[Rfam]
Description: Shown here is a 96-nucleotide RNA from Lacrimispora xylanisolvens, a member of the family "Purine riboswitch aptamer".
RNA sequence: AGUAUCAGUAUUCAAGAAACUUAUAUAUGCUCAUAAUUGGAUGAGUGUUUCUACCAACUACCGUAAUAGUUGUCUAUAAGUUUCCUCGUGAUGGGA
Numbered sequence: 001a002g003u004a005u006c007a008g009u010a011u012u013c014a015a016g017a018a019a020c021u022u023a024u025a026u027a028u029g030c031u032c033a034u035a036a037u038u039g040g041a042u043g044a045g046u047g048u049u050u051c052u053a054c055c056a057a058c059u060a061c062c063g064u065a066a067u068a069g070u071u072g073u074c075u076a077u078a079a080g081u082u083u084c085c086u087c088g089u090g091a092u093g094g095g096a
Stems, first nucleotide, its partner, number of pairs: 018082008029046006055072006